[Rfam]
RNA sequence: GUCGGUCUUCGGUAGUGGCCAUCCGGACGAGUUCCGGCCGGCUUCGAUCGACGGCCGCC
Numbered sequence: 001g002u003c004g005g006u007c008u009u010c011g012g013u014a015g016u017g018g019c020c021a022u023c024c025g026g027a028c029g030a031g032u033u034c035c036g037g038c039c040g041g042c043u044u045c046g047a048u049c050g051a052c053g054g055c056c057g058c059c
Stems, first nucleotide, its partner, number of pairs: 001059001003057005009051005017043004023037005
Rfam assigns this 59-nucleotide RNA sequence from Rhodococcus (subgen. Prescottella) equi to the family "Actino-pnp RNA". The match comes from Rfam's covariance-model search (54 bits). The family's RNA type in Rfam is cis-regulatory element.